[Rfam]
RNA sequence: UAUAAAACGAUGAGUGGAGAAGUACAAUAUCACCCUGUAUAAAGCGAAUCUAGGAUGGUGAAAGCUAGGUAAUAAGCGAUAUUGGAAUAACACCAUGAGUGAUGGAAGAAUUGAGUAGACCCAUCCGUACACCUGCGUUAAAGGACUUGAGUGCUAGAAAUAGAACUAAGGUGGUACCGCGGAUUUUAUUCGUCCUUAAA
Numbered sequence: 001u002a003u004a005a006a007a008c009g010a011u012g013a014g015u016g017g018a019g020a021a022g023u024a025c026a027a028u029a030u031c032a033c034c035c036u037g038u039a040u041a042a043a044g045c046g047a048a049u050c051u052a053g054g055a056u057g058g059u060g061a062a063a064g065c066u067a068g069g070u071a072a073u074a075a076g077c078g079a080u081a082u083u084g085g086a087a088u089a090a091c092a093c094c095a096u097g098a099g100u101g102a103u104g105g106a107a108g109a110a111u112u113g114a115g116u117a118g119a120c121c122c123a124u125c126c127g128u129a130c131a132c133c134u135g136c137g138u139u140a141a142a143g144g145a146c147u148u149g150a151g152u153g154c155u156a157g158a159a160a161u162a163g164a165a166c167u168a169a170g171g172u173g174g175u176a177c178c179g180c181g182g183a184u185u186u187u188a189u190u191c192g193u194c195c196u197u198a199a200a
Stems, first nucleotide, its partner, number of pairs: 007100002015095003025084006037073002048070006102124004126137003154163003168197004179193005
RNA: T-box leader